[Rfam]
RNA sequence: UUACUGCUAGGUUAAUAUAUCAACUUCUCCACAUGUCAGACUUCAGAGAUCUUAAGCAGAUCAUAAGAAGAAAGUUAGCUAUUUGAGCAGUGA
Numbered sequence: 001u002u003a004c005u006g007c008u009a010g011g012u013u014a015a016u017a018u019a020u021c022a023a024c025u026u027c028u029c030c031a032c033a034u035g036u037c038a039g040a041c042u043u044c045a046g047a048g049a050u051c052u053u054a055a056g057c058a059g060a061u062c063a064u065a066a067g068a069a070g071a072a073a074g075u076u077a078g079c080u081a082u083u084u085g086a087g088c089a090g091u092g093a
Stems, first nucleotide, its partner, number of pairs: 001093007048062004
A member of the RNA family "Small nucleolar RNA R64/Z200 family" from Kingdonia uniflora, 93 nucleotides long. NCBI's taxonomy places the organism under Eukaryota, Embryophyta, Euphyllophyta, Spermatophyta, Kingdonia. It scores 52 bits against the family's covariance model. It is annotated as a C/D-box small nucleolar RNA. A reference for the family is Galardi et al. (2002), "Purified box C/D snoRNPs are able to reproduce site-specific 2'-O-methylation of target RNA in vitro", Mol Cell Biol.